[Rfam]
Background: The family of this 155-nucleotide RNA from Populus tomentosa is "MIR2912 microRNA precursor family". Gene Ontology terms of the family: RISC complex and miRNA-mediated post-transcriptional gene silencing. The base pairs follow the family's consensus structure, which was predicted with RNAalifold.
RNA sequence: UCUAGAACUCGAGAUAUGGGCUGAACACCGAACAGUUUCUAGGCUGCAGGACAGAUUCGGACUUCUCCGUUGUUGCUAUAAUUUGGACUUGAAAACAGCCUUUUUAAAUCUUGGACCCCACAUGAAAGUUAUAGGUCUAUGUCUUACUGAAUAUG
Numbered sequence: 001u002c003u004a005g006a007a008c009u010c011g012a013g014a015u016a017u018g019g020g021c022u023g024a025a026c027a028c029c030g031a032a033c034a035g036u037u038u039c040u041a042g043g044c045u046g047c048a049g050g051a052c053a054g055a056u057u058c059g060g061a062c063u064u065c066u067c068c069g070u071u072g073u074u075g076c077u078a079u080a081a082u083u084u085g086g087a088c089u090u091g092a093a094a095a096c097a098g099c100c101u102u103u104u105u106a107a108a109u110c111u112u113g114g115a116c117c118c119c120a121c122a123u124g125a126a127a128g129u130u131a132u133a134g135g136u137c138u139a140u141g142u143c144u145u146a147c148u149g150a151a152u153a154u155g
Base pairs, nucleotide, nucleotide: 003155004154007152008149009146011145012144013143014142015141016140017139018138019137020136021134022133023132025130027129028128035123036122042118043117045115048112049111050110051109054105055104059100060099062098063097072088073087074086

The organism belongs to Populus, within Eukaryota.